[Rfam]
RNA sequence: AGAUGAGGUAGAGGUUGCGGAAGUGAUGAGUAAGACGUGAUGAGGCGUAAGAGCCGCCUAUGAUUCACGACUGAAAGGCGCCUUCCGCCGAAGUGUGAAGAUCUGCUCAGAUGAUCUCCAUGCUGGGUCUGUUGCCGAAAGGAGCAGAACUGUCGCGACUUUUUCUCUUGAAGAAGUCGUGUUGAGCUAUCUUUCAU
Numbered sequence: 001a002g003a004u005g006a007g008g009u010a011g012a013g014g015u016u017g018c019g020g021a022a023g024u025g026a027u028g029a030g031u032a033a034g035a036c037g038u039g040a041u042g043a044g045g046c047g048u049a050a051g052a053g054c055c056g057c058c059u060a061u062g063a064u065u066c067a068c069g070a071c072u073g074a075a076a077g078g079c080g081c082c083u084u085c086c087g088c089c090g091a092a093g094u095g096u097g098a099a100g101a102u103c104u105g106c107u108c109a110g111a112u113g114a115u116c117u118c119c120a121u122g123c124u125g126g127g128u129c130u131g132u133u134g135c136c137g138a139a140a141g142g143a144g145c146a147g148a149a150c151u152g153u154c155g156c157g158a159c160u161u162u163u164u165c166u167c168u169u170g171a172a173g174a175a176g177u178c179g180u181g182u183u184g185a186g187c188u189a190u191c192u193u194u195c196a197u
Stems, first nucleotide, its partner, number of pairs: 006192006017088006023081003033072002036069005092124006099117005125151002128148006135141001154181010
RNA: Lysine riboswitch aptamer